RNA sequence: UGGAAGAAUCUGUUAAGCUCAGGAGGGAUAGCGCCCUAAGGAUAAUCAUGGGCUCUUUUUAUCUGGGUUUUUCUUUUACAGUUAGUGGCGCUAUCCAUCCUGAGUUUUACUGGUUCUUCUU
Numbered sequence: 001u002g003g004a005a006g007a008a009u010c011u012g013u014u015a016a017g018c019u020c021a022g023g024a025g026g027g028a029u030a031g032c033g034c035c036c037u038a039a040g041g042a043u044a045a046u047c048a049u050g051g052g053c054u055c056u057u058u059u060u061a062u063c064u065g066g067g068u069u070u071u072u073c074u075u076u077u078a079c080a081g082u083u084a085g086u087g088g089c090g091c092u093a094u095c096c097a098u099c100c101u102g103a104g105u106u107u108u109a110c111u112g113g114u115u116c117u118u119c120u121u
Base pairs, nucleotide, nucleotide: 010112016106017105018104019103020102021101022100023099024098026096027095028094029093030092031091032090033089034088035087

This 121-nucleotide RNA from Salix brachista belongs to the Rfam family "MIR390 microRNA precursor family". Rfam 15.1 lists 649 matches to the family in 206 species. The source organism's lineage runs through Eukaryota, Viridiplantae, Embryophyta, eudicotyledons and Salix. It scores 106 bits against the family's covariance model.